[Rfam]
The family of this 88-nucleotide RNA from Xenopus tropicalis is "mir-204 microRNA precursor family". For this family Rfam cites "Conservation of small RNA pathways in platypus" (Murchison et al., Genome Res, 2008). The sequence is in the family's curated seed alignment. Rfam 15.1 lists 1,730 matches to the family in 644 species.
Nucleotides: 088
Base pairs, nucleotide, nucleotide: 017070018069019068020067021066022065024063025062028059029058030057031056034054035053036052037051
Number, partner (000 for none) and nucleotide at each position: 001000u002000u003000g004000u005000g006000a007000c008000c009000c010000a011000u012000g013000g014000g015000c016000u017070u018069c019068c020067c021066u022065u023000u024063g025062u026000c027000a028059u029058c030057c031056u032000a033000u034054g035053c036052c037051u038000g039000a040000g041000a042000a043000u044000g045000c046000u047000g048000g049000a050000g051037a052036g053035g054034c055000a056031g057030g058029g059028a060000c061000a062025g063024c064000a065022a066021a067020g068019g069018g070017a071000u072000g073000c074000u075000c076000a077000g078000a079000u080000g081000u082000u083000a084000c085000c086000u087000c088000u